[Rfam]
Nucleotides: 131
Stems, first nucleotide, its partner, number of pairs: 002059006009052001019044001021042008069124007081110005089102001091100001
Number, partner (000 for none) and nucleotide at each position: 001000c002059u003058u004057g005056c006055a007054c008000c009052c010000a011000a012000a013000a014000c015000c016000a017000a018000a019044g020000c021042u022041c023040a024039c025038a026037u027036c028035g029000u030000g031000u032000c033000a034000g035028u036027g037026g038025u039024g040023u041022g042021a043000u044019c045000u046000u047000g048000u049000c050000u051000g052009g053000c054007g055006u056005g057004c058003a059002g060000a061000c062000a063000g064000a065000a066000u067000c068000g069124g070123a071122u072121c073120c074119u075118u076000g077000u078000c079000g080000c081110c082109u083108u084107u085106c086000u087000c088000u089102g090000a091100c092000g093000c094000u095000g096000c097000g098000g099000u100091g101000c102089c103000u104000u105000u106085g107084a108083a109082a110081g111000u112000g113000a114000a115000u116000c117000c118075a119074a120073g121072g122071g123070u124069c125000g126000a127000c128000a129000a130000g131000c